[Rfam]
RNA: FMN riboswitch aptamer (RFN element)
Organism: Acetobacteraceae bacterium
RNA sequence: CGGCAUUCUCGGGGCGGGGUGAAAUUCCCUACCGGCGGUAAUGGCAAAGACCUCCCUCUUUUCCAAAGCCCGCGAGCGCUGUUUAUCAACAUCUAGCGAUAAACAGGUCAAGCAGAGCUGGUGUGAUUCCAGCGCCGACGGUCAUAGUCCGGAAGAGAGAGAAUAUCG
Numbered sequence: 001c002g003g004c005a006u007u008c009u010c011g012g013g014g015c016g017g018g019g020u021g022a023a024a025u026u027c028c029c030u031a032c033c034g035g036c037g038g039u040a041a042u043g044g045c046a047a048a049g050a051c052c053u054c055c056c057u058c059u060u061u062u063c064c065a066a067a068g069c070c071c072g073c074g075a076g077c078g079c080u081g082u083u084u085a086u087c088a089a090c091a092u093c094u095a096g097c098g099a100u101a102a103a104c105a106g107g108u109c110a111a112g113c114a115g116a117g118c119u120g121g122u123g124u125g126a127u128u129c130c131a132g133c134g135c136c137g138a139c140g141g142u143c144a145u146a147g148u149c150c151g152g153a154a155g156a157g158a159g160a161g162a163a164u165a166u167c168g
Base pairs, nucleotide, nucleotide: 003166005164006163007162008161009160010159017029018028019027031148032147033137034136035073036072037071038070068135069134076113077112117133118132119131120130121129139151140150141149